RNA: speF leader
RNA sequence: UGCCGGUCGUCCAAAGACCGGGGUUACUGAAGAGGCACACCUUCAUUGCCGGCAGUGCGGAGGGGUCUCCCCAAUCCAAAGCUGAGGCAGACAAAGCGAGCGUUCGCCGCAAGGCGGAAGCUCACCGCCGCGUGACAGGCGUUCGAGGU
Numbered sequence: 001u002g003c004c005g006g007u008c009g010u011c012c013a014a015a016g017a018c019c020g021g022g023g024u025u026a027c028u029g030a031a032g033a034g035g036c037a038c039a040c041c042u043u044c045a046u047u048g049c050c051g052g053c054a055g056u057g058c059g060g061a062g063g064g065g066u067c068u069c070c071c072c073a074a075u076c077c078a079a080a081g082c083u084g085a086g087g088c089a090g091a092c093a094a095a096g097c098g099a100g101c102g103u104u105c106g107c108c109g110c111a112a113g114g115c116g117g118a119a120g121c122u123c124a125c126c127g128c129c130g131c132g133u134g135a136c137a138g139g140c141g142u143u144c145g146a147g148g149u
Stems, first nucleotide, its partner, number of pairs: 001023001003021006034050004082090001099143005